Notes: This 138-nucleotide sequence from Oryzias javanicus belongs to the Rfam family "Small nucleolar RNA SNORD94". Rfam 15.1 lists 802 matches to the family in 622 species. The family's RNA type in Rfam is C/D-box small nucleolar RNA. NCBI's taxonomy places the organism under Eukaryota, Eumetazoa, Craniata, Euacanthomorphacea, Oryzias. Gene Ontology terms of the family: nucleolus and RNA processing. The base pairs follow the family's consensus structure, which was predicted with RNAalifold. The match comes from Rfam's covariance-model search (63 bits).
RNA sequence: GCAGGCAUGAUGAGAGGCGCAGGGGUACGGACCUCAGCCGCUGAUGGGGGCUGAGCGCUGCUGCAGAGGCCGUCAGGAACAUGUGGUUCACUGUCAGGCCAGCAGCAGCAGCGCGACACAGACGCCACGCUGACCUGC
Number, nucleotide and partner (000 for none) at each position: 001g138002c137003a136004g135005g134006c000007a000008u000009g000010a000011u000012g000013a000014g000015a000016g000017g000018c000019g000020c000021a000022g000023g000024g000025g000026u000027a000028c000029g000030g000031a000032c000033c000034u000035c000036a000037g000038c000039c000040g000041c000042u000043g000044a000045u000046g000047g000048g000049g000050g000051c000052u000053g000054a000055g000056c000057g000058c000059u000060g000061c000062u000063g000064c000065a000066g000067a000068g000069g000070c000071c000072g000073u000074c000075a000076g000077g000078a000079a000080c000081a000082u000083g000084u000085g000086g000087u000088u000089c000090a000091c000092u000093g000094u000095c000096a000097g000098g000099c000100c000101a000102g000103c000104a000105g000106c000107a000108g000109c000110a000111g000112c000113g000114c000115g000116a000117c000118a000119c000120a000121g000122a000123c000124g000125c000126c000127a000128c000129g000130c000131u000132g000133a000134c005135c004136u003137g002138c001